The record is a 93-nucleotide sequence from Harryflintia acetispora, which matches "Glycine riboswitch aptamer" in Rfam. NCBI's taxonomy places the organism under Bacteria, Clostridia, Eubacteriales, Oscillospiraceae, Harryflintia. The match comes from Rfam's covariance-model search (35 bits).
RNA sequence: CUCUGGAAAGCCCUUGGCGGGAAUCCUUGUACUGCCAUGCGGCACCGAAGAAGCAAUCCCCCGCGGGGAGAAUCUUUCAGGUCAAUGACGGAG
Numbered sequence: 001c002u003c004u005g006g007a008a009a010g011c012c013c014u015u016g017g018c019g020g021g022a023a024u025c026c027u028u029g030u031a032c033u034g035c036c037a038u039g040c041g042g043c044a045c046c047g048a049a050g051a052a053g054c055a056a057u058c059c060c061c062c063g064c065g066g067g068g069a070g071a072a073u074c075u076u077u078c079a080g081g082u083c084a085a086u087g088a089c090g091g092a093g
Base pairs, nucleotide, nucleotide: 001093002092003091004090005089012042013041015039044082045081046080047078048077051076052075053074057069058068059067060066
Dot-bracket structure: (((((......((.(.......................).)).(((((..(((...((((.....))))....))))).)))......)))))